This 196-nucleotide sequence from Enterobacillus tribolii belongs to the Rfam family "GcvB RNA". A search with the family's covariance model found it, with a score of 154 bits. The family's RNA type in Rfam is non-coding RNA gene. Its family is annotated with mRNA binding and regulation of gene expression in the Gene Ontology. Rfam describes the family as follows. The gcvB gene encodes a small untranslated RNA involved in expression of the dipeptide and oligopeptide transport systems in Escherichia coli. Included several unknown homologues in alignment (Bateman A pers obs). It base-pairs with SorC. This interaction triggers the degradation of GcvB by RNase E, alleviating the GcvB-mediated mRNA repression of other amino acid-related transport and metabolic genes.
RNA sequence: ACAUCCCGGGCCGGAACGAAAGAGUGUUGACGGAGAGAUUCGGAAAUGCUUUUGGCUUUGUGGUUGUGAUGUUGUGUUUGCAAAUUGUCCGGCAUUCCGGACAGAGUAGCUAAGCUACUGUUUUUUCACUUCCUGUACAUUUACCCUGUCUGUCCAUAGUGAUUUAGUAGCACCGCAGAUUGCGGUGCUUUUUUUU
Dot-bracket structure: ........((((..((....(.((((((..((((....))))..)))))))))))))...........................((((((((....))))))))((((((...))))))...................(((........................)))((((((((.....)))))))).......